The family of this 174-nucleotide RNA is "Group II catalytic intron D1-D4-3".

RNA sequence: UCCUCGGUGACUUGGAAUCCGAAGGAAGCUGGCGGCAAAAUCUCGACCUUACGGACAGGAACUGCAUAAAAGGCUGUACAUGGAGGACAAAGCUGCAAAUCAAGUUUAAGUCCUAUAACUAUCCGAAUCCAAGUAUGGUAAAUGCAGAGGACACAUGAGAUGAAAGCGUACUUC
Dot-bracket structure: (((..(....)..)))...........(..(...((...((((((..(((...........((((((.....(((.(.(.((((((((..((((........))))...))))..............)))).).).)))..))))))))).....))))))....))...)..)